RNA sequence: GGAUGUGAGGGCGAUCUGGCUGCGACAUCUGUCACCCCAUUGAUCGCCAGGGUUGAUUCGGCUGAUCUGGCUGGCUAGGCGGGUGUCCCCUUCCUCCCUCACGGCUCCAUGUGCGUCCCUCCCGAAGCUGCGCGCUCGGUGGAAGAGGACGACCAUCCCAGAUAGAAGGAGUGUACCGUUCUUCGGUCAAGGGUAUACGAUAGCUGCGCUCCCCUGCUAGAACCUCCAAACAAGCUCAAGGUUCAUUACUUUACUUUUGUAUGCAACAAUGUAUGUCUAUAUCCAGCAUCAGCAAAACUGAGACAUUCUUCUCUUCCUGUUAUGUU
Numbered sequence: 001g002g003a004u005g006u007g008a009g010g011g012c013g014a015u016c017u018g019g020c021u022g023c024g025a026c027a028u029c030u031g032u033c034a035c036c037c038c039a040u041u042g043a044u045c046g047c048c049a050g051g052g053u054u055g056a057u058u059c060g061g062c063u064g065a066u067c068u069g070g071c072u073g074g075c076u077a078g079g080c081g082g083g084u085g086u087c088c089c090c091u092u093c094c095u096c097c098c099u100c101a102c103g104g105c106u107c108c109a110u111g112u113g114c115g116u117c118c119c120u121c122c123c124g125a126a127g128c129u130g131c132g133c134g135c136u137c138g139g140u141g142g143a144a145g146a147g148g149a150c151g152a153c154c155a156u157c158c159c160a161g162a163u164a165g166a167a168g169g170a171g172u173g174u175a176c177c178g179u180u181c182u183u184c185g186g187u188c189a190a191g192g193g194u195a196u197a198c199g200a201u202a203g204c205u206g207c208g209c210u211c212c213c214c215u216g217c218u219a220g221a222a223c224c225u226c227c228a229a230a231c232a233a234g235c236u237c238a239a240g241g242u243u244c245a246u247u248a249c250u251u252u253a254c255u256u257u258u259g260u261a262u263g264c265a266a267c268a269a270u271g272u273a274u275g276u277c278u279a280u281a282u283c284c285a286g287c288a289u290c291a292g293c294a295a296a297a298c299u300g301a302g303a304c305a306u307u308c309u310u311c312u313c314u315u316c317c318u319g320u321u322a323u324g325u326u
Base pairs, nucleotide, nucleotide: 001108002107003106005102006101007100008099009098010097011096013093014092018090019089024087025086026085027084028083029082030081031080032079033078035074036073037070038069039068042067043066044065045064046062047061048060117173118169119168120167121165122139123138124137125136127135128134140162147158148157149156203287204286205285213275215273216272217271226263230260231259232258233257234256